[Rfam]
RNA sequence: AUACAUAAAAGCAUUCACUGCCAAUUACCUAGGUAAUUACCCUUGAUGUGGUUGGCUUCCCGGGGAAAUUCCCUGAAUUUCGGAAUUUUCCCGGGAAGCUAACCACAACAAGGGUAAUUACCUAGGUAAUUGGCAGUGAAUGCUUUUAUGUGC
Numbered sequence: 001a002u003a004c005a006u007a008a009a010a011g012c013a014u015u016c017a018c019u020g021c022c023a024a025u026u027a028c029c030u031a032g033g034u035a036a037u038u039a040c041c042c043u044u045g046a047u048g049u050g051g052u053u054g055g056c057u058u059c060c061c062g063g064g065g066a067a068a069u070u071c072c073c074u075g076a077a078u079u080u081c082g083g084a085a086u087u088u089u090c091c092c093g094g095g096a097a098g099c100u101a102a103c104c105a106c107a108a109c110a111a112g113g114g115u116a117a118u119u120a121c122c123u124a125g126g127u128a129a130u131u132g133g134c135a136g137u138g139a140a141u142g143c144u145u146u147u148a149u150g151u152g153c
Stems, first nucleotide, its partner, number of pairs: 003151007011143032049108001051106002055099009073083002
Record summary:
The family of this 153-nucleotide sequence from Paulinella micropora is "MIR898 microRNA precursor family". The source organism's lineage runs through Eukaryota, Rhizaria, Imbricatea, Silicofilosea and Paulinella.